[Rfam]
RNA sequence: ACAGAAAAAUGCCAAGCCCAUCGUGAAGUGGGUACGGAAAGCCGCGAGCCCCUUUUUUCAAGGGAUAGUCGGGUUGCCUGU
Numbered sequence: 001a002c003a004g005a006a007a008a009a010u011g012c013c014a015a016g017c018c019c020a021u022c023g024u025g026a027a028g029u030g031g032g033u034a035c036g037g038a039a040a041g042c043c044g045c046g047a048g049c050c051c052c053u054u055u056u057u058u059c060a061a062g063g064g065a066u067a068g069u070c071g072g073g074u075u076g077c078c079u080g081u
Base pairs, nucleotide, nucleotide: 012037013036017032018031019030020029021028040075041074042073043072045071046070047069048066050064051063052062053061054060
RNA: c-di-GMP-I riboswitch aptamer